[Rfam]
Shown here is a 66-nucleotide RNA sequence from Virgibacillus necropolis, a member of the family "Bacillaceae-1 RNA". The match comes from Rfam's covariance-model search (49 bits). The family's consensus secondary structure is taken from published work.
RNA sequence: UUAGAAAUCAGGUCGACAAAGAACGCAACGUCCUGUUGCAAAGUCGACAUUAGCACGUCCUGUGCG
Number, nucleotide and partner (000 for none) at each position: 001u000002u000003a000004g000005a000006a000007a000008u000009c000010a000011g000012g048013u047014c046015g045016a044017c043018a000019a000020a000021g000022a000023a000024c000025g039026c038027a037028a036029c035030g000031u000032c000033c000034u000035g029036u028037u027038g026039c025040a000041a000042a000043g017044u016045c015046g014047a013048c012049a000050u000051u000052a000053g065054c064055a063056c062057g000058u000059c000060c000061u000062g056063u055064g054065c053066g000
Rfam classes the family as a small RNA. NCBI's taxonomy places the organism under Bacteria, Bacillati, Bacillota, Bacilli, Virgibacillus.